RNA: Plant small nucleolar RNA U3
Organism: Cucumis melo
RNA sequence: ACGACCUUACUUGAACAGGAUCUGUUCUAUAGGUUGUACAAUUGUAUCCUUGCGUUCUAAGGAGACAAGAUCCUAAGUCUGGUGGAUGAGUUCUUGCCUUGUGACUAGAGCGUGAGUAAUGGCUUAAAGACCCAUGGUCUGGCGGCUGUAGAGGAUCGUUCUUGGCAGGUAUGUCUUGCUGGGUUGGUUGCAUGGUGGUCUGACGGACU
Numbered sequence: 001a002c003g004a005c006c007u008u009a010c011u012u013g014a015a016c017a018g019g020a021u022c023u024g025u026u027c028u029a030u031a032g033g034u035u036g037u038a039c040a041a042u043u044g045u046a047u048c049c050u051u052g053c054g055u056u057c058u059a060a061g062g063a064g065a066c067a068a069g070a071u072c073c074u075a076a077g078u079c080u081g082g083u084g085g086a087u088g089a090g091u092u093c094u095u096g097c098c099u100u101g102u103g104a105c106u107a108g109a110g111c112g113u114g115a116g117u118a119a120u121g122g123c124u125u126a127a128a129g130a131c132c133c134a135u136g137g138u139c140u141g142g143c144g145g146c147u148g149u150a151g152a153g154g155a156u157c158g159u160u161c162u163u164g165g166c167a168g169g170u171a172u173g174u175c176u177u178g179c180u181g182g183g184u185u186g187g188u189u190g191c192a193u194g195g196u197g198g199u200c201u202g203a204c205g206g207a208c209u
Stems, first nucleotide, its partner, number of pairs: 001037002003034001005033003013027006042068004047063006077208005096196003100192008109160004119149006128140005162182008